RNA sequence: GGUCAGUGAUGAGCAGUAAAAGGUCUGAUUACCCACAAUCCUCUCCUGCUGCCCUCUGGCUCCCAGCAACCCCUGCUCUCUGCUCCUAUCAUGCUCUAGUGAUGCAAUGGUAGAGCCAUGAGCUGCUGACAGACAUACGGGAUGUGACAUCACAGAGUCUGUUCCAGAUCCUACGGGCUCGAUGUGAUGAGUAACAUCCAACAGAACCAAUCAGCAUGGAGCGUCAGGCACAGGAGGCGGAGGGAGCUGAUCUUAAGUUUUCAAGCUGAGACC
Number, nucleotide and partner (000 for none) at each position: 001g273002g272003u271004c270005a000006g000007u000008g000009a000010u000011g000012a000013g000014c000015a000016g000017u000018a000019a000020a000021a000022g000023g000024u000025c000026u000027g000028a000029u000030u000031a000032c000033c000034c000035a253036c000037a251038a000039u249040c000041c000042u237043c236044u235045c234046c233047u232048g231049c000050u000051g000052c000053c000054c000055u000056c000057u000058g000059g000060c221061u220062c219063c218064c128065a127066g126067c125068a124069a000070c122071c000072c000073c000074u000075g000076c000077u000078c000079u000080c000081u000082g000083c000084u000085c000086c113087u112088a111089u110090c109091a108092u107093g000094c104095u000096c000097u000098a000099g000100u000101g000102a000103u000104g094105c000106a000107a092108u091109g090110g089111u088112a087113g086114a000115g000116c000117c000118a000119u000120g000121a000122g070123c000124u068125g067126c066127u065128g064129a000130c000131a000132g000133a000134c000135a000136u000137a000138c000139g199140g000141g198142a197143u196144g195145u194146g000147a000148c000149a000150u000151c000152a000153c000154a000155g180156a179157g178158u177159c176160u175161g174162u173163u000164c000165c000166a000167g000168a000169u000170c000171c000172u000173a162174c161175g160176g159177g158178c157179u156180c155181g000182a000183u000184g000185u000186g000187a000188u000189g000190a000191g000192u000193a000194a145195c144196a143197u142198c141199c139200a000201a000202c000203a000204g000205a000206a000207c000208c000209a000210a000211u000212c000213a000214g000215c000216a000217u000218g063219g062220a061221g060222c000223g000224u000225c000226a000227g000228g000229c000230a000231c048232a047233g046234g045235a044236g043237g042238c000239g000240g000241a000242g000243g000244g000245a000246g000247c000248u000249g039250a000251u037252c000253u035254u000255a000256a000257g000258u000259u000260u000261u000262c000263a000264a000265g000266c000267u000268g000269a000270g004271a003272c002273c001
RNA: Small Cajal body specific RNA 6
Organism: Mola mola